[Rfam]
RNA sequence: UCCAAGACUAGACUCACGUCCUGAGAACUGCUGUCCUGGUGUGCUCGAGGUCUCGGAGAGAAUCUGCUGGUCUCGACUCACUGGCAAGGGCAGUCAGUGCCCCUGGUAGUGCCCAGAUCAGGAGCACAC
Numbered sequence: 001u002c003c004a005a006g007a008c009u010a011g012a013c014u015c016a017c018g019u020c021c022u023g024a025g026a027a028c029u030g031c032u033g034u035c036c037u038g039g040u041g042u043g044c045u046c047g048a049g050g051u052c053u054c055g056g057a058g059a060g061a062a063u064c065u066g067c068u069g070g071u072c073u074c075g076a077c078u079c080a081c082u083g084g085c086a087a088g089g090g091c092a093g094u095c096a097g098u099g100c101c102c103c104u105g106g107u108a109g110u111g112c113c114c115a116g117a118u119c120a121g122g123a124g125c126a127c128a129c
Stems, first nucleotide, its partner, number of pairs: 002056002005053002008049002012045001015043006023035002026032001067121007075113001079111005086104001088102004
Dot-bracket structure: .((.((.((..(..((((((..((.(.....).))..)))))).)..))..)).))..........(((((((.(...(((((..(.((((.......)))).)..))))).).)))))))........